[Rfam]
RNA sequence: UGGCAAGUUCAAGUCCACAGCAGAAGUGCUCAUGACAUCCUGUCAGAUUCCAAUGAAUCUGCAAAAUCUGUU
Dot-bracket structure: ............[.....((((((.(((.......)))]....(((((((....))))))).....))))))

This 72-nucleotide sequence from Alligator sinensis belongs to the Rfam family "Mammalian CPEB3 ribozyme".